RNA: TPP riboswitch aptamer (THI element)
Organism: Bacillus aquiflavi
RNA sequence: GAAAUGCACUAGGGGUGCCGGAAGAGGCUGGCUGAGAUUAAGACCUGAAGAAGUCUUUGACCCUUUAACCUGAUCUGGUUUGUACCAGCGGAGGGAAGUGGCUGCGUCUUUAA
Numbered sequence: 001g002a003a004a005u006g007c008a009c010u011a012g013g014g015g016u017g018c019c020g021g022a023a024g025a026g027g028c029u030g031g032c033u034g035a036g037a038u039u040a041a042g043a044c045c046u047g048a049a050g051a052a053g054u055c056u057u058u059g060a061c062c063c064u065u066u067a068a069c070c071u072g073a074u075c076u077g078g079u080u081u082g083u084a085c086c087a088g089c090g091g092a093g094g095g096a097a098g099u100g101g102c103u104g105c106g107u108c109u110u111u112a113a
Stems, first nucleotide, its partner, number of pairs: 007100004011064004017032005040057004069094003075088004